FMN riboswitch aptamer (RFN element): a 117-nucleotide RNA sequence from Clostridium disporicum.
RNA sequence: AAUUAUCUUCAGGGCAGGGUGUAAUUCCCUACCGGCGGUAUAGCCCGCGAGCUCGAAAGAGUAUGAUUCGGUGAAACUCCGAAGCCGACAGUAAAGUCUGGAUGAAAGAAGGUAGUA
Number, nucleotide and partner (000 for none) at each position: 001a000002a000003u115004u114005a113006u112007c111008u110009u109010c108011a000012g000013g000014g000015c000016a000017g029018g028019g027020u000021g000022u000023a000024a000025u000026u000027c019028c018029c017030u000031a097032c096033c087034g086035g048036c047037g046038g045039u000040a000041u000042a000043g085044c084045c038046c037047g036048c035049g000050a000051g000052c000053u061054c000055g000056a000057a000058a000059g000060a000061g053062u000063a000064u000065g000066a000067u083068u082069c081070g080071g079072u000073g000074a000075a000076a000077c000078u000079c071080c070081g069082a068083a067084g044085c043086c034087g033088a000089c100090a099091g098092u000093a000094a000095a000096g032097u031098c091099u090100g089101g000102a000103u000104g000105a000106a000107a000108g010109a009110a008111g007112g006113u005114a004115g003116u000117a000

Rfam's curators write: The RFN element is a highly conserved domain that is found frequently in the 5'-untranslated regions of prokaryotic mRNAs that encode for flavin mononucleotide (FMN) biosynthesis and transport proteins.
The base pairs follow the family's consensus structure, which is taken from published work.